[Rfam]
RNA sequence: CUUGAUGGAGCCGAGCAGCAGCGGCUGGUCCUCGGUGUGCUCCUGGCCGUAGGUGGCGAGCAGCGCCUGCGCCUC
Numbered sequence: 001c002u003u004g005a006u007g008g009a010g011c012c013g014a015g016c017a018g019c020a021g022c023g024g025c026u027g028g029u030c031c032u033c034g035g036u037g038u039g040c041u042c043c044u045g046g047c048c049g050u051a052g053g054u055g056g057c058g059a060g061c062a063g064c065g066c067c068u069g070c071g072c073c074u075c
Stems, first nucleotide, its partner, number of pairs: 014026003031071001033069001038065002043060002047056003
Rfam assigns this 75-nucleotide sequence from Streptomyces albiflaviniger to the family "ASpks TB sRNA". For this family Rfam cites "Identification of small RNAs in Mycobacterium tuberculosis" (Arnvig and Young, Mol Microbiol, 2009). Pairs were carried over by alignment from the consensus structure, which is taken from published work. The source organism's lineage runs through Bacteria, Actinomycetota, Kitasatosporales, Streptomycetaceae and Streptomyces. A search with the family's covariance model found it, with a score of 78 bits.